[Rfam]
RNA: Vault RNA
Organism: Gadus morhua
RNA sequence: GAACUGGUUUAGCUCAGUGGCUACUUCCUACAAAAAAAUUCUUCUGAUUUCCUGUACCAUCUCUACCCGGGAUCCAACCACGGGCGCUGUCCAGUGUAUUU
Numbered sequence: 001g002a003a004c005u006g007g008u009u010u011a012g013c014u015c016a017g018u019g020g021c022u023a024c025u026u027c028c029u030a031c032a033a034a035a036a037a038a039u040u041c042u043u044c045u046g047a048u049u050u051c052c053u054g055u056a057c058c059a060u061c062u063c064u065a066c067c068c069g070g071g072a073u074c075c076a077a078c079c080a081c082g083g084g085c086g087c088u089g090u091c092c093a094g095u096g097u098a099u100u101u
Stems, first nucleotide, its partner, number of pairs: 003095005012085004017081004026072004